Rfam assigns this 120-nucleotide RNA from Ligilactobacillus salivarius to the family "Ribosomal protein L10 leader". Pairs were carried over by alignment from the consensus structure, which was predicted with CMfinder. Its family is annotated with regulation of gene expression in the Gene Ontology.
RNA sequence: GUCAAGUUAAUAAUUCUACCUAAGACUCAGGUGGCUAACGCCUUAAAUUUAUGCCUGCCGAGGAGUAAACGUAUCUCUCUCUGUGUCUUGGUGUGGACAUAGAGCUUUUUAUUUAUAAAA
Numbered sequence: 001g002u003c004a005a006g007u008u009a010a011u012a013a014u015u016c017u018a019c020c021u022a023a024g025a026c027u028c029a030g031g032u033g034g035c036u037a038a039c040g041c042c043u044u045a046a047a048u049u050u051a052u053g054c055c056u057g058c059c060g061a062g063g064a065g066u067a068a069a070c071g072u073a074u075c076u077c078u079c080u081c082u083g084u085g086u087c088u089u090g091g092u093g094u095g096g097a098c099a100u101a102g103a104g105c106u107u108u109u110u111a112u113u114u115a116u117a118a119a120a
Base pairs, nucleotide, nucleotide: 028057029056030055031054032053033042034041035040079104080103081102082101083100084099085098086097087096

NCBI's taxonomy places the organism under Bacteria, Bacilli, Lactobacillaceae, Ligilactobacillus, Ligilactobacillus salivarius.